RNA sequence: UGGUCGGGAGGCUCCAAUGGGAAUGGAGCCGGGAAUUGACCGAAGCGUGCUGUCUCGUAUGGGAGCAAGACCGGGACCCGACGGUGCUUGUU
Numbered sequence: 001u002g003g004u005c006g007g008g009a010g011g012c013u014c015c016a017a018u019g020g021g022a023a024u025g026g027a028g029c030c031g032g033g034a035a036u037u038g039a040c041c042g043a044a045g046c047g048u049g050c051u052g053u054c055u056c057g058u059a060u061g062g063g064a065g066c067a068a069g070a071c072c073g074g075g076a077c078c079c080g081a082c083g084g085u086g087c088u089u090g091u092u
Stems, first nucleotide, its partner, number of pairs: 001042005010030007064092005070085004
Dot-bracket structure: (((((....(((((((.......))))))).......))))).....................(((((.((((........))))..)))))
This 92-nucleotide RNA belongs to the Rfam family "Rhodo-rpoB RNA". The family's consensus secondary structure is taken from published work.